[Rfam]
RNA sequence: UUGUCUUGGCCUAUGCGCUCUCUGCUCAGCUGUAACAGGAAAGUCUGGCAGGACACACAGCAACCUCCCUCUCAGUUUAGGAGGGCUUUCCUGAGUAUAGGCUGGAUCUUAAAGGCACGAGGACAAU
Numbered sequence: 001u002u003g004u005c006u007u008g009g010c011c012u013a014u015g016c017g018c019u020c021u022c023u024g025c026u027c028a029g030c031u032g033u034a035a036c037a038g039g040a041a042a043g044u045c046u047g048g049c050a051g052g053a054c055a056c057a058c059a060g061c062a063a064c065c066u067c068c069c070u071c072u073c074a075g076u077u078u079a080g081g082a083g084g085g086c087u088u089u090c091c092u093g094a095g096u097a098u099a100g101g102c103u104g105g106a107u108c109u110u111a112a113a114g115g116c117a118c119g120a121g122g123a124c125a126a127u
Stems, first nucleotide, its partner, number of pairs: 002055007010048002024044003030038003068122003073119001075116004081110004086105002090101004
This 127-nucleotide RNA from Myotis myotis belongs to the Rfam family "Small Cajal body specific RNA 11".
Its family is annotated with nucleolus, RNA processing and Cajal body in the Gene Ontology.
For this family Rfam cites "Cajal body-specific small nuclear RNAs: a novel class of 2'-O-methylation and pseudouridylation guide RNAs" (Darzacq et al., EMBO J, 2002).
scaRNAs are a specific class of small nuclear RNAs which localise to the Cajal bodies and guide the modification of RNA polymerase II transcribed spliceosomal RNAs U1, U2, U4, U5 and U12.
Pairs were carried over by alignment from the consensus structure, which was predicted with RNAalifold.